A member of the RNA family "TPP riboswitch aptamer (THI element)" from Neisseria dentiae, 97 nucleotides long. Pairs were carried over by alignment from the consensus structure, which is taken from published work. Its family is annotated with thiamine pyrophosphate binding in the Gene Ontology. It scores 65 bits against the family's covariance model.
RNA sequence: UUUGCUUAGUCGGGGUGCUGUCGUGAUGGACGGCUGAGAUGAUACCCGUGAACCUGAUACAGUUAAUACUGGCGUAGGAAACUAAAAUGGCAGCCAU
Number, nucleotide and partner (000 for none) at each position: 001u000002u000003u000004g000005c000006u085007u084008a083009g082010u081011c048012g047013g046014g045015g000016u042017g034018c033019u032020g031021u030022c000023g000024u000025g000026a000027u000028g000029g000030a021031c020032g019033g018034c017035u000036g000037a000038g000039a000040u000041g000042a016043u000044a000045c014046c013047c012048g011049u000050g000051a000052a000053c078054c077055u076056g075057a000058u000059a000060c071061a070062g069063u000064u000065a000066a000067u000068a000069c062070u061071g060072g000073c000074g000075u056076a055077g054078g053079a000080a000081a010082c009083u008084a007085a006086a000087a000088u000089g000090g000091c000092a000093g000094c000095c000096a000097u000